[Rfam]
RNA sequence: GGUCUGUGAUGAAUAGUAAAAGGUCUGAUUAUCCUAAGACUUACACUUCCAUGACCUUUUCUCCCAGCAGUUUCUCACCAGUCACAGCGCAGUAAUGGUGUGGCUGGCAGAGUGUUUGCUGACAGCUUGUGAUGUGUUCAGUUCAUGUUAACCUGAAGUGCUGGAGACACGACUGGGACCGGCAUCCAACAGUCCUACUUGAAGGAGUUUGGGGUCUUGGAUUGUUAUAGCUGGAUGUGUGAUCUGACUUUUCUGCUGAGACC
Number, nucleotide and partner (000 for none) at each position: 001g263002g262003u261004c260005u000006g000007u000008g000009a000010u000011g000012a000013a000014u000015a000016g000017u000018a000019a000020a000021a000022g000023g000024u000025c000026u000027g000028a000029u000030u000031a000032u000033c000034c000035u000036a000037a245038g244039a243040c000041u241042u000043a000044c000045a000046c000047u000048u221049c220050c219051a218052u000053g216054a215055c000056c000057u000058u000059u000060u000061c207062u206063c205064c204065c121066a120067g119068c118069a117070g116071u000072u000073u000074c000075u000076c000077a000078c107079c106080a105081g104082u103083c102084a101085c100086a099087g000088c000089g000090c000091a000092g000093u000094a000095a000096u000097g000098g000099u086100g085101u084102g083103g082104c081105u080106g079107g078108c000109a000110g000111a000112g000113u000114g000115u000116u070117u069118g068119c067120u066121g065122a000123c000124a000125g000126c000127u000128u000129g187130u000131g186132a185133u184134g183135u182136g000137u000138u000139c000140a000141g000142u000143u000144c171145a000146u169147g168148u167149u166150a000151a000152c164153c163154u000155g000156a000157a000158g000159u000160g000161c000162u000163g153164g152165a000166g149167a148168c147169a146170c000171g144172a000173c000174u000175g000176g000177g000178a000179c000180c000181g000182g135183c134184a133185u132186c131187c129188a000189a000190c000191a000192g000193u000194c000195c000196u000197a000198c000199u000200u000201g000202a000203a000204g064205g063206a062207g061208u000209u000210u000211g000212g000213g000214g000215u054216c053217u000218u051219g050220g049221a048222u000223u000224g000225u000226u000227a000228u000229a000230g000231c000232u000233g000234g000235a000236u000237g000238u000239g000240u000241g041242a000243u039244c038245u037246g000247a000248c000249u000250u000251u000252u000253c000254u000255g000256c000257u000258g000259a000260g004261a003262c002263c001

Small Cajal body specific RNA 6: a 263-nucleotide RNA from Corythaeola cristata. It scores 117 bits against the family's covariance model. The family's consensus secondary structure is taken from published work. The source organism's lineage runs through Eukaryota, Craniata, Dipnotetrapodomorpha, Musophagidae and Corythaeola. Gene Ontology terms of the family: nucleolus and RNA processing.